[Rfam]
Overview:
Shown here is a 121-nucleotide RNA sequence from Speluncibacter jeojiensis, a member of the family "SAM (S-adenosyl methionine) riboswitch aptamer". The literature on the family includes a 2008 paper in RNA by Weinberg et al., "The aptamer core of SAM-IV riboswitches mimics the ligand-binding site of SAM-I riboswitches". The family has 40 seed sequences and 2,360 matches in Rfam 15.1. Clan: SAM clan. SAM-IV is a mRNA element that regulates gene expression via direct sensing of S-adenosylmethionine (SAM or AdoMet). SAM-IV riboswitches share conserved nucleotide positions with the previously described SAM-I riboswitches sequence analysis and molecular recognition experiments suggest that SAM-I and SAM-IV riboswitches share similar ligand binding sites, but have different scaffolds. Lineage of the source: Bacteria > Bacillati > Mycobacteriales > Speluncibacteraceae > Speluncibacter.
RNA sequence: GUUCACGAGAGGCAGUUGUCGGUACCUGGCCGGCUGCCCGGCAACCCCGUCGCCAUCGACCGGGGUGCCCCAGGGGAAGAACCGGCCCGUGCCGCUGCCGCCGCACGGGCAAGUCGAUGGA
Numbered sequence: 001g002u003u004c005a006c007g008a009g010a011g012g013c014a015g016u017u018g019u020c021g022g023u024a025c026c027u028g029g030c031c032g033g034c035u036g037c038c039c040g041g042c043a044a045c046c047c048c049g050u051c052g053c054c055a056u057c058g059a060c061c062g063g064g065g066u067g068c069c070c071c072a073g074g075g076g077a078a079g080a081a082c083c084g085g086c087c088c089g090u091g092c093c094g095c096u097g098c099c100g101c102c103g104c105a106c107g108g109g110c111a112a113g114u115c116g117a118u119g120g121a
Stems, first nucleotide, its partner, number of pairs: 001082004009039001011038006021031002040069003045065003049060002085110008094101001